[Rfam]
RNA sequence: CAACAGGUUUUCUAGGGUUCCGCAGGAAGUGCCGCUGGUCUGGUCCGAGAGAAAACCCGCAGCUUGAGCAGCUGUGACACGGAAGGAUAAAAGCCUGGGAGAU
Numbered sequence: 001c002a003a004c005a006g007g008u009u010u011u012c013u014a015g016g017g018u019u020c021c022g023c024a025g026g027a028a029g030u031g032c033c034g035c036u037g038g039u040c041u042g043g044u045c046c047g048a049g050a051g052a053a054a055a056c057c058c059g060c061a062g063c064u065u066g067a068g069c070a071g072c073u074g075u076g077a078c079a080c081g082g083a084a085g086g087a088u089a090a091a092a093g094c095c096u097g098g099g100a101g102a103u
Stems, first nucleotide, its partner, number of pairs: 007056006015046002020043002022040001023037003026032001058076007078098001080101001084096003
The record is a 103-nucleotide RNA sequence from Xylanibacillus composti, which matches "Guanidine-I riboswitch aptamer" in Rfam. The match comes from Rfam's covariance-model search (83 bits).